[Rfam]
RNA sequence: AGCACCCACGUGGGAGAGACCGUCCUGGCGUAGCCGGGUCGGCGCCGAAGGGGCAAAUCCUCCCCGGAACCUCUCAGGCAAAAGGACCGCGUGGCGUCA
Number, nucleotide and partner (000 for none) at each position: 001a000002g000003c000004a000005c000006c094007c093008a092009c091010g090011u089012g088013g087014g000015a000016g000017a000018g000019a000020c042021c041022g040023u000024c000025c000026u000027g000028g000029c000030g000031u000032a000033g000034c000035c000036g000037g000038g000039u000040c022041g021042g020043c000044g079045c078046c077047g075048a074049a000050g000051g073052g072053g071054c000055a000056a000057a000058u066059c000060c000061u000062c000063c000064c000065c000066g058067g000068a000069a000070c000071c053072u052073c051074u048075c047076a000077g046078g045079c044080a000081a000082a000083a000084g000085g000086a000087c013088c012089g011090c010091g009092u008093g007094g006095c000096g000097u000098c000099a000
About this RNA
The family of this 99-nucleotide RNA from Micromonospora maris is "Glycine riboswitch aptamer".